Rfam assigns this 54-nucleotide sequence from Anguilla anguilla to the family "UnaL2 LINE 3' element". The family's consensus secondary structure is taken from published work. It scores 57 bits against the family's covariance model. The eel long interspersed element (LINE) UnaL2 and its partner short interspersed element (SINE) share a conserved 3' tail containing a stem-loop that is critical for their retrotransposition. Presumably, the first step of retrotransposition is the recognition of their 3' tails by UnaL2-encoded reverse transcriptase. The solution structure of a 17-nucleotide RNA derived from the 3' tail of UnaL2 was determined by NMR.
RNA sequence: UAAAAAAAGUUGUGUAAGUCACUUUGGAUAAGAGCAUCUGCUAAAUGCCAUGUA
Numbered sequence: 001u002a003a004a005a006a007a008a009g010u011u012g013u014g015u016a017a018g019u020c021a022c023u024u025u026g027g028a029u030a031a032g033a034g035c036a037u038c039u040g041c042u043a044a045a046u047g048c049c050a051u052g053u054a
Stems, first nucleotide, its partner, number of pairs: 013043001014041003022034004
Dot-bracket structure: ............((((.....((((.....))))....))).)...........